[Rfam]
Rfam assigns this 95-nucleotide sequence from Clostridiales bacterium oral taxon 876 to the family "Guanidine-I riboswitch aptamer".
From the family's description: This family represents a conserved RNA structure found upstream of the ykkC and yxkD genes in Bacillus subtilis and related genes in other bacteria. The function of this family is unclear although it has been suggested that it may function to switch on efflux pumps and detoxification systems in response to harmful environmental molecules.
Rfam 15.1 lists 1,509 matches to the family in 1,281 species.
The pairing is the family consensus, mapped onto this sequence.
The organism belongs to Clostridiales bacterium oral taxon 876, within Bacteria.
RNA sequence: AGUUUAGUUUUCUAGGGUUCCGCAGUUAUAACUGGCAGGUCCGAGAGAAAACGCACAAAGAAUUGUGUACACGGAAGGAUAAAAGCCUGGGAGAU
Numbered sequence: 001a002g003u004u005u006a007g008u009u010u011u012c013u014a015g016g017g018u019u020c021c022g023c024a025g026u027u028a029u030a031a032c033u034g035g036c037a038g039g040u041c042c043g044a045g046a047g048a049a050a051a052c053g054c055a056c057a058a059a060g061a062a063u064u065g066u067g068u069a070c071a072c073g074g075a076a077g078g079a080u081a082a083a084a085g086c087c088u089g090g091g092a093g094a095u
Stems, first nucleotide, its partner, number of pairs: 007052006015042002020039002022036001023034004053068006070090001072093001076088003